[Rfam]
RNA: Plastid-rps12 3UTR RNA
RNA sequence: GGUUUCCAUUGGUGCAAAUCCAAUCACCUUAAUUGUAGAUGAUAAGCAACUCCCCAUUGGUAGCAAAUGGUUAUCCAUUAAGCGGGGAAUUGGUAUU
Numbered sequence: 001g002g003u004u005u006c007c008a009u010u011g012g013u014g015c016a017a018a019u020c021c022a023a024u025c026a027c028c029u030u031a032a033u034u035g036u037a038g039a040u041g042a043u044a045a046g047c048a049a050c051u052c053c054c055c056a057u058u059g060g061u062a063g064c065a066a067a068u069g070g071u072u073a074u075c076c077a078u079u080a081a082g083c084g085g086g087g088a089a090u091u092g093g094u095a096u097u
Stems, first nucleotide, its partner, number of pairs: 009023004052086001054085002056078002059075006